[Rfam]
RNA: HgcF RNA (Pab35)
RNA sequence: GCCGACAGUGAGGGGACAAUUAGUCUCCUCGCAUGGGCUCGGUAUACCCGCCUUCGCAAGGUAUCGGGUUCUAUGAGCGAAGUGUGCUCACACCGAGCCCACAGGGCCGGUGCAUCCACCCGCGCGAGAAAUGAACGCGGGCCUCUGUUGCCGGCCUACAAGUUUUUUAUU
Numbered sequence: 001g002c003c004g005a006c007a008g009u010g011a012g013g014g015g016a017c018a019a020u021u022a023g024u025c026u027c028c029u030c031g032c033a034u035g036g037g038c039u040c041g042g043u044a045u046a047c048c049c050g051c052c053u054u055c056g057c058a059a060g061g062u063a064u065c066g067g068g069u070u071c072u073a074u075g076a077g078c079g080a081a082g083u084g085u086g087c088u089c090a091c092a093c094c095g096a097g098c099c100c101a102c103a104g105g106g107c108c109g110g111u112g113c114a115u116c117c118a119c120c121c122g123c124g125c126g127a128g129a130a131a132u133g134a135a136c137g138c139g140g141g142c143c144u145c146u147g148u149u150g151c152c153g154g155c156c157u158a159c160a161a162g163u164u165u166u167u168u169a170u171u
Stems, first nucleotide, its partner, number of pairs: 008032009035100008049079003053068004104157007119141006